[Rfam]
The family of this 82-nucleotide RNA from Myotis brandtii is "mir-9243 microRNA precursor family".
Its family is annotated with RISC complex and miRNA-mediated post-transcriptional gene silencing in the Gene Ontology.
It scores 83 bits against the family's covariance model.
The family's consensus secondary structure was predicted with RNAalifold.
RNA sequence: UCUUGCACAUAUUUCGUGCAUCGGGCCUCUAGUAAAGUUAUAAAAAUACUAGAGGCCCAAUGCAUGAAAUUUGUGCAAGAGU
Numbered sequence: 001u002c003u004u005g006c007a008c009a010u011a012u013u014u015c016g017u018g019c020a021u022c023g024g025g026c027c028u029c030u031a032g033u034a035a036a037g038u039u040a041u042a043a044a045a046a047u048a049c050u051a052g053a054g055g056c057c058c059a060a061u062g063c064a065u066g067a068a069a070u071u072u073g074u075g076c077a078a079g080a081g082u
Stems, first nucleotide, its partner, number of pairs: 001080002004077006011070001013068003017064005023058012